[Rfam]
RNA: glmS glucosamine-6-phosphate activated ribozyme aptamer
Organism: Clostridium collagenovorans
RNA sequence: UUUUUAAGUAUAGCGCCAGAGGUUAUAAACUUUAUAACCUGACGAGGAUGAGGAGUAUCGAAAAUUCGGCGGGUGCCUCACCCUAUGACACUAGGGAAAACGAUUAGCAAAACUAGGAAGUGAUUCUUAGGACAAAUCUAAUCAGGUGUUAACU
Numbered sequence: 001u002u003u004u005u006a007a008g009u010a011u012a013g014c015g016c017c018a019g020a021g022g023u024u025a026u027a028a029a030c031u032u033u034a035u036a037a038c039c040u041g042a043c044g045a046g047g048a049u050g051a052g053g054a055g056u057a058u059c060g061a062a063a064a065u066u067c068g069g070c071g072g073g074u075g076c077c078u079c080a081c082c083c084u085a086u087g088a089c090a091c092u093a094g095g096g097a098a099a100a101c102g103a104u105u106a107g108c109a110a111a112a113c114u115a116g117g118a119a120g121u122g123a124u125u126c127u128u129a130g131g132a133c134a135a136a137u138c139u140a141a142u143c144a145g146g147u148g149u150u151a152a153c154u
Base pairs, nucleotide, nucleotide: 020040021039022038023037024036025035026034027033049080050079051078052077053076058069059068060067061066081096082095083094084093085092102143103142104141105140106139113130114129115128116127117126118125119124